[Rfam]
tRNA: a 74-nucleotide RNA from Acidithiobacillus ferrooxidans.
RNA sequence: GGGCCUAUAGCUCAGCUGGCUAGAGCACACGCCUGAUAAGCGUGAGGUCAGUGGUUCGAGUCCACUUGGGCCCA
Number, nucleotide and partner (000 for none) at each position: 001g073002g072003g071004c070005c069006u068007a067008u000009a000010g026011c025012u024013c023014a000015g000016c000017u000018g000019g000020c000021u000022a000023g013024a012025g011026c010027a000028c044029a043030c042031g041032c040033c000034u000035g000036a000037u000038a000039a000040g032041c031042g030043u029044g028045a000046g000047g000048u000049c000050a066051g065052u064053g063054g062055u000056u000057c000058g000059a000060g000061u000062c054063c053064a052065c051066u050067u007068g006069g005070g004071c003072c002073c001074a000
Rfam links the family to the GO term triplet codon-amino acid adaptor activity.
Pairs were carried over by alignment from the consensus structure, which is taken from published work.
By type it is a transfer RNA.